[Rfam]
RNA sequence: CAAUCGGUGGUUUAGUCAAAUAUCAGCUGGUAAUUCUGGGCUGUUGAGAGUGACCCAGGAUUCUGGCUGGUAUGAGGCUACGCACUGGC
Dot-bracket structure: ............(((((..(((((((((((..((((((((.............)))))))).)))))))))))..))))).........
RNA: mir-283 microRNA precursor family